[Rfam]
This 104-nucleotide RNA sequence from Hoyosella subflava belongs to the Rfam family "mraW RNA".
By type it is a cis-regulatory element.
RNA sequence: UGGGCCGGGUGUUACGCGGCCUCUGCCCGGUAGAGCCCCUGGCGUACUUCCCCAACGCCAGGUACUCCGUCCGGACAGAGCCCACGUGGCAUCCCCCGAUGUUC
Numbered sequence: 001u002g003g004g005c006c007g008g009g010u011g012u013u014a015c016g017c018g019g020c021c022u023c024u025g026c027c028c029g030g031u032a033g034a035g036c037c038c039c040u041g042g043c044g045u046a047c048u049u050c051c052c053c054a055a056c057g058c059c060a061g062g063u064a065c066u067c068c069g070u071c072c073g074g075a076c077a078g079a080g081c082c083c084a085c086g087u088g089g090c091a092u093c094c095c096c097c098g099a100u101g102u103u104c
Base pairs, nucleotide, nucleotide: 010091011090012089013088014087015086016085018083019082021080022079023078024077025076027074028073029072030071033068034066035065038062039061040060041059042058043057044056045055